[Rfam]
RNA sequence: UUUGCACCUAAACCCAAGAAUCACUGUUAAUAUAGCAGUGAUUUAAACAGAGGUGCAGACAGCAAGUGGAUCUCGUCGCCUUUGGAGGGCUGUGACUGUGCCCCUCAAAGUGAAUGUGGAGGUUCUACAUCU
Numbered sequence: 001u002u003u004g005c006a007c008c009u010a011a012a013c014c015c016a017a018g019a020a021u022c023a024c025u026g027u028u029a030a031u032a033u034a035g036c037a038g039u040g041a042u043u044u045a046a047a048c049a050g051a052g053g054u055g056c057a058g059a060c061a062g063c064a065a066g067u068g069g070a071u072c073u074c075g076u077c078g079c080c081u082u083u084g085g086a087g088g089g090c091u092g093u094g095a096c097u098g099u100g101c102c103c104c105u106c107a108a109a110g111u112g113a114a115u116g117u118g119g120a121g122g123u124u125c126u127a128c129a130u131c132u
Stems, first nucleotide, its partner, number of pairs: 002058008019043010068125007080110006087103004
Annotation: Shown here is a 132-nucleotide RNA sequence from Otolemur garnettii, a member of the family "Small nucleolar RNA SNORA68". The family has 26 seed sequences and 1,079 matches in Rfam 15.1. Its family is annotated with RNA processing and nucleolus in the Gene Ontology. Rfam classes the family as an H/ACA-box small nucleolar RNA.